[Rfam]
RNA sequence: UCAAAGUACUUUUGUACGUCGCUCUGGACAAGAGCGUCUGCUAAAUGCCGUAAA
Numbered sequence: 001u002c003a004a005a006g007u008a009c010u011u012u013u014g015u016a017c018g019u020c021g022c023u024c025u026g027g028a029c030a031a032g033a034g035c036g037u038c039u040g041c042u043a044a045a046u047g048c049c050g051u052a053a054a
Stems, first nucleotide, its partner, number of pairs: 013043001014041003020036006
RNA: UnaL2 LINE 3' element